The family of this 549-nucleotide part of an RNA from Acetivibrio saccincola is "Bacterial small subunit ribosomal RNA". Clan: SSU clan. Taxonomically the source falls in Acetivibrio (Bacteria, Bacillota, Clostridia, Acetivibrionales).

RNA sequence: UUAUUAGAGGGUUUGAUCCUGGCUCAGGAUGAACGCUGGCGGCGUGCCUAACACAUGCAAGUCGAGCGGGGUAUACGGAGCAGCUUGCUGCACUGUAGACCUAGCGGCGGACGGGUGAGUAACGCGUGGGUAACCUGCCUUACACAGGGGGAUAACACUGGGAAACCAGUGCUAAUACCGCAUAACAUCAUUUUAUGGCAUCAUGAAAUGAUCAAAGGAGAAAUCCGGUGUAAGAUGGGCCCGCGUCCGAUUAGCUAGUUGGUGAGGUAAUGGCUCACCAAGGCAGCGAUCGGUAGCCGGACUGAGAGGUUGGCCGGCCACAUUGGGACUGAGACACGGCCCAGACUCCUACGGGAGGCAGCAGUGGGGAAUAUUGCGCAAUGGGGGGAACCCUGACGCAGCGACGCCGCGUGAAGGAAGAAGGCCUUCGGGUUGUAAACUUCUUUGAUUGGGGAAGAAAAAUGACGGUACCCAAAGAACAAGCCACGGCUAACUACGUGCCAGCAGCCGCGGUAAUACGUAGGUGGCGAGCGUUAUCCGGAAUUACUG
Numbered sequence: 001u002u003a004u005u006a007g008a009g010g011g012u013u014u015g016a017u018c019c020u021g022g023c024u025c026a027g028g029a030u031g032a033a034c035g036c037u038g039g040c041g042g043c044g045u046g047c048c049u050a051a052c053a054c055a056u057g058c059a060a061g062u063c064g065a066g067c068g069g070g071g072u073a074u075a076c077g078g079a080g081c082a083g084c085u086u087g088c089u090g091c092a093c094u095g096u097a098g099a100c101c102u103a104g105c106g107g108c109g110g111a112c113g114g115g116u117g118a119g120u121a122a123c124g125c126g127u128g129g130g131u132a133a134c135c136u137g138c139c140u141u142a143c144a145c146a147g148g149g150g151g152a153u154a155a156c157a158c159u160g161g162g163a164a165a166c167c168a169g170u171g172c173u174a175a176u177a178c179c180g181c182a183u184a185a186c187a188u189c190a191u192u193u194u195a196u197g198g199c200a201u202c203a204u205g206a207a208a209u210g211a212u213c214a215a216a217g218g219a220g221a222a223a224u225c226c227g228g229u230g231u232a233a234g235a236u237g238g239g240c241c242c243g244c245g246u247c248c249g250a251u252u253a254g255c256u257a258g259u260u261g262g263u264g265a266g267g268u269a270a271u272g273g274c275u276c277a278c279c280a281a282g283g284c285a286g287c288g289a290u291c292g293g294u295a296g297c298c299g300g301a302c303u304g305a306g307a308g309g310u311u312g313g314c315c316g317g318c319c320a321c322a323u324u325g326g327g328a329c330u331g332a333g334a335c336a337c338g339g340c341c342c343a344g345a346c347u348c349c350u351a352c353g354g355g356a357g358g359c360a361g362c363a364g365u366g367g368g369g370a371a372u373a374u375u376g377c378g379c380a381a382u383g384g385g386g387g388g389a390a391c392c393c394u395g396a397c398g399c400a401g402c403g404a405c406g407c408c409g410c411g412u413g414a415a416g417g418a419a420g421a422a423g424g425c426c427u428u429c430g431g432g433u434u435g436u437a438a439a440c441u442u443c444u445u446u447g448a449u450u451g452g453g454g455a456a457g458a459a460a461a462a463u464g465a466c467g468g469u470a471c472c473c474a475a476a477g478a479a480c481a482a483g484c485c486a487c488g489g490c491u492a493a494c495u496a497c498g499u500g501c502c503a504g505c506a507g508c509c510g511c512g513g514u515a516a517u518a519c520g521u522a523g524g525u526g527g528c529g530a531g532c533g534u535u536a537u538c539c540g541g542a543a544u545u546a547c548u549g
Stems, first nucleotide, its partner, number of pairs: 009025005027539004032535006039410006045403002047368001052366003056363003061108003066105002069101002077094002080091004115321003124246008134238002139234007147181001149179002156171006187212007195204003217226003247293003254284003259281008296318004300311004323344005346357004374400001376399003382395005413443004423434004447480001449475005457466001483528005494523005504511002